[Rfam]
This 88-nucleotide sequence from Xanthomonas campestris belongs to the Rfam family "sRNA-Xcc1".

RNA sequence: GGCCGGGUGGCGCGCAGCUAUGCAAUACCCGAAAGGGGAAAACUGCGGGCGGCCCUACGACCGUGUUCAAGCACCCGGCCGCCUCUCU
Numbered sequence: 001g002g003c004c005g006g007g008u009g010g011c012g013c014g015c016a017g018c019u020a021u022g023c024a025a026u027a028c029c030c031g032a033a034a035g036g037g038g039a040a041a042a043c044u045g046c047g048g049g050c051g052g053c054c055c056u057a058c059g060a061c062c063g064u065g066u067u068c069a070a071g072c073a074c075c076c077g078g079c080c081g082c083c084u085c086u087c088u
Stems, first nucleotide, its partner, number of pairs: 001080009013047004019041001028037003049064004
Rfam's curators put it in the seed alignment. Rfam classes the family as a small RNA. On this family, see Chen et al., RNA Biol 2011: "sRNA-Xcc1, an integron-encoded transposon- and plasmid-transferred trans-acting sRNA, is under the positive control of the key virulence regulators HrpG and HrpX of Xanthomonas campestris pathovar campestris". NCBI's taxonomy places the organism under Bacteria, Pseudomonadati, Pseudomonadota, Lysobacterales, Xanthomonas campestris pv. campestris.